A member of the RNA family "MIR473 microRNA precursor family" from Corchorus olitorius, 77 nucleotides long.
Lineage of the source: Eukaryota > Streptophyta > Spermatophyta > eudicotyledons > Corchorus.
A reference for the family is Pantaleo et al. (2010), "Identification of grapevine microRNAs and their targets using high-throughput sequencing and degradome analysis", Plant J.
The base pairs follow the family's consensus structure, which was predicted with WAR.
The family has 6 seed sequences and 189 matches in Rfam 15.1.
[Rfam]
RNA sequence: GUUUUUCACUCUCCUCUAAAGGCUUCAAGCUAAAAUCAAACUAAAGCUUGAAGCCUUAAAAGGAGAGUGAAGAAAAG
Numbered sequence: 001g002u003u004u005u006u007c008a009c010u011c012u013c014c015u016c017u018a019a020a021g022g023c024u025u026c027a028a029g030c031u032a033a034a035a036u037c038a039a040a041c042u043a044a045a046g047c048u049u050g051a052a053g054c055c056u057u058a059a060a061a062g063g064a065g066a067g068u069g070a071a072g073a074a075a076a077g
Stems, first nucleotide, its partner, number of pairs: 006070010017059001019057008
Rfam links the family to the GO terms miRNA-mediated post-transcriptional gene silencing and RISC complex.